[Rfam]
RNA sequence: GGAGCCAUAGGGAGGGAUCCUACUCCAGUCUUCGGAAAAGAAACCUGCCACAGGAGUCUUGGAGAUUGGCGACCACCCUAAUGACUUA
Numbered sequence: 001g002g003a004g005c006c007a008u009a010g011g012g013a014g015g016g017a018u019c020c021u022a023c024u025c026c027a028g029u030c031u032u033c034g035g036a037a038a039a040g041a042a043a044c045c046u047g048c049c050a051c052a053g054g055a056g057u058c059u060u061g062g063a064g065a066u067u068g069g070c071g072a073c074c075a076c077c078c079u080a081a082u083g084a085c086u087u088a
Base pairs, nucleotide, nucleotide: 002087003086004085006083007082008081010079011078012077015074016073018071020069021068022067024065025064029062030061038060039059040058041057044054045053046052047051
The record is an 88-nucleotide RNA sequence from Equus asinus, which matches "mir-9014 microRNA precursor family" in Rfam. Its family is annotated with miRNA-mediated post-transcriptional gene silencing and RISC complex in the Gene Ontology. A search with the family's covariance model found it, with a score of 88 bits. Lineage of the source: Eukaryota > Craniata > Dipnotetrapodomorpha > Tetrapoda > Equus.